Description: The record is a 128-nucleotide RNA sequence, which matches "Small nucleolar RNA SNORA44" in Rfam.
[Rfam]
RNA sequence: AAGCAUGUUUCCAAGGGCUGUGGCUGCUUGUAGCCAAGGGAUCUUCAAAUGCAUGCCAGAGUAAUGGAGAGACUUUGACAGUGCAGGUCAGCACAAAGCCUGCAGCUACCACUCAGCUUUCCUGUAUA
Numbered sequence: 001a002a003g004c005a006u007g008u009u010u011c012c013a014a015g016g017g018c019u020g021u022g023g024c025u026g027c028u029u030g031u032a033g034c035c036a037a038g039g040g041a042u043c044u045u046c047a048a049a050u051g052c053a054u055g056c057c058a059g060a061g062u063a064a065u066g067g068a069g070a071g072a073c074u075u076u077g078a079c080a081g082u083g084c085a086g087g088u089c090a091g092c093a094c095a096a097a098g099c100c101u102g103c104a105g106c107u108a109c110c111a112c113u114c115a116g117c118u119u120u121c122c123u124g125u126a127u128a
Stems, first nucleotide, its partner, number of pairs: 011039002016035007066122006081109002084102004
The literature on the family includes a 2001 paper in EMBO J by Huttenhofer et al., "RNomics: an experimental approach that identifies 201 candidates for novel, small, non-messenger RNAs in mouse". Rfam 15.1 lists 1,056 matches to the family in 599 species. ACA44 is a member of the H/ACA class of snoRNA that guide the sites of modification of uridines to pseudouridines. Rfam links the family to the GO terms RNA processing and nucleolus. The base pairs follow the family's consensus structure, which was predicted with PFOLD.